[Rfam]
RNA sequence: UGGUAGAUGCACCCUAAUUGAUGCCCUCAGUUAAUGACUGAGGGUUUUUUCU
Numbered sequence: 001u002g003g004u005a006g007a008u009g010c011a012c013c014c015u016a017a018u019u020g021a022u023g024c025c026c027u028c029a030g031u032u033a034a035u036g037a038c039u040g041a042g043g044g045u046u047u048u049u050u051c052u
Stems, first nucleotide, its partner, number of pairs: 002013003024044009